Small nucleolar RNA U3: a 216-nucleotide RNA sequence from Mastacembelus armatus. Gene Ontology terms of the family: nucleolus and RNA processing. A search with the family's covariance model found it, with a score of 163 bits. Small nucleolar RNAs (snoRNAs) are involved in the processing and modification of rRNA in the nucleolus. Clan: U3 clan.
RNA sequence: AAGACUAUACUUUCAGGGAUCAUUUCUAUAGUUUCUGACUUGAGAAAUGUGUUUCUAAAGUGUAUGGUCUCGCUAACCACGAUGAUGAGUCGUGAUAUUUCCUUUUGAGCGUGAAGCAGACAGAAAAUAAUGGUUCAUUUCAUAUGUUUUCUGUUAUUGAUGACCGUUCUUUGCUUCUUUGUGGAGUAAUGAGGGAGGGAAUAUGAUCAGAGUGGU
Numbered sequence: 001a002a003g004a005c006u007a008u009a010c011u012u013u014c015a016g017g018g019a020u021c022a023u024u025u026c027u028a029u030a031g032u033u034u035c036u037g038a039c040u041u042g043a044g045a046a047a048u049g050u051g052u053u054u055c056u057a058a059a060g061u062g063u064a065u066g067g068u069c070u071c072g073c074u075a076a077c078c079a080c081g082a083u084g085a086u087g088a089g090u091c092g093u094g095a096u097a098u099u100u101c102c103u104u105u106u107g108a109g110c111g112u113g114a115a116g117c118a119g120a121c122a123g124a125a126a127a128u129a130a131u132g133g134u135u136c137a138u139u140u141c142a143u144a145u146g147u148u149u150u151c152u153g154u155u156a157u158u159g160a161u162g163a164c165c166g167u168u169c170u171u172u173g174c175u176u177c178u179u180u181g182u183g184g185a186g187u188a189a190u191g192a193g194g195g196a197g198g199g200a201a202u203a204u205g206a207u208c209a210g211a212g213u214g215g216u
Base pairs, nucleotide, nucleotide: 001041002040003039005037007034009032010031011030015027016026017025018024049065050064051063054062076216077215078214079213080212095204096203097202098201099200100199101198102197103196104195105194106193109167110166111165119155120154121153122152125149126148127147128146130143131142132141133140171189172188173187174186175185176184177183
Dot-bracket structure: (((.(.(.(((...((((.....))))..))).)..).))).......(((..(.......))))..........(((((..............((((((((((((..(((.......((((..((((.((((......))))..))))..)))).........)))...(((((((.....)))))))...)))))))))))).......)))))